[Rfam]
RNA sequence: AACCUGGGAAAUCCUACCUCUGCCUCCACGUGGUGAUCGCUGGGAAUUCUUUCUUAAUGAAGAAUUGCAGACGAAGAAGG
Numbered sequence: 001a002a003c004c005u006g007g008g009a010a011a012u013c014c015u016a017c018c019u020c021u022g023c024c025u026c027c028a029c030g031u032g033g034u035g036a037u038c039g040c041u042g043g044g045a046a047u048u049c050u051u052u053c054u055u056a057a058u059g060a061a062g063a064a065u066u067g068c069a070g071a072c073g074a075a076g077a078a079g080g
Stems, first nucleotide, its partner, number of pairs: 013080003017076001019074002022034003045066007053059001
A member of the RNA family "drz-agam-1 ribozyme" from Hermetia illucens, 80 nucleotides long. A search with the family's covariance model found it, with a score of 46 bits. Pairs were carried over by alignment from the consensus structure, which is taken from published work. Lineage of the source: Eukaryota > Opisthokonta > Altocrustacea > Allotriocarida > Hermetia. On this family, see Webb et al., Science 2009: "Widespread occurrence of self-cleaving ribozymes".